[Rfam]
RNA sequence: AGAUGACCUUCUCUGGAGUCGCUGCACCUCCUUGAUGAGAGCACAUUUGAACCUUUUUCCAUCUGAUGAAAAAGAAAGUUUCAU
Numbered sequence: 001a002g003a004u005g006a007c008c009u010u011c012u013c014u015g016g017a018g019u020c021g022c023u024g025c026a027c028c029u030c031c032u033u034g035a036u037g038a039g040a041g042c043a044c045a046u047u048u049g050a051a052c053c054u055u056u057u058u059c060c061a062u063c064u065g066a067u068g069a070a071a072a073a074g075a076a077a078g079u080u081u082c083a084u
Stems, first nucleotide, its partner, number of pairs: 003084004

This 84-nucleotide RNA from Suricata suricatta belongs to the Rfam family "Small nucleolar RNA MBII-202". Gene Ontology terms of the family: nucleolus and RNA processing. Pairs were carried over by alignment from the consensus structure, which was predicted with PFOLD. Taxonomically the source falls in Suricata (Eukaryota, Opisthokonta, Sarcopterygii, Feliformia).